The family of this 93-nucleotide RNA sequence is "Hairpin ribozyme 1 from viruses-like metatranscriptomes". It is one of the family's seed sequences. A reference for the family is Weinberg et al. (2021), "Identification of over 200-fold more hairpin ribozymes than previously known in diverse circular RNAs", Nucleic Acids Res. Rfam links the family to the GO term RNA nuclease activity.
RNA sequence: AGUCGGUCCACAGAAUCUUUGGCCAUCAUCAGAUGUUGUCAACUGUGGGAAGACUGGAAGGGAAACACUCUACCAAGAGGUACAUUAACUUCC
Numbered sequence: 001a002g003u004c005g006g007u008c009c010a011c012a013g014a015a016u017c018u019u020u021g022g023c024c025a026u027c028a029u030c031a032g033a034u035g036u037u038g039u040c041a042a043c044u045g046u047g048g049g050a051a052g053a054c055u056g057g058a059a060g061g062g063a064a065a066c067a068c069u070c071u072a073c074c075a076a077g078a079g080g081u082a083c084a085u086u087a088a089c090u091u092c093c
Stems, first nucleotide, its partner, number of pairs: 001055004009047005019042004056093005068079004
Dot-bracket structure: ((((....(((((.....((((................)))))))))....))))(((((.......((((....)))).........)))))